[Rfam]
RNA sequence: UUUUUUUUUUGUGGGAACAAAAAGAAAUGGAUUUAUUCUAUACUCAAUAAGUAUCAAUAUGUAAUGGGG
Numbered sequence: 001u002u003u004u005u006u007u008u009u010u011g012u013g014g015g016a017a018c019a020a021a022a023a024g025a026a027a028u029g030g031a032u033u034u035a036u037u038c039u040a041u042a043c044u045c046a047a048u049a050a051g052u053a054u055c056a057a058u059a060u061g062u063a064a065u066g067g068g069g
Stems, first nucleotide, its partner, number of pairs: 003022002006019001008017003043068003051060003
RNA: Plastid-clpP 5UTR RNA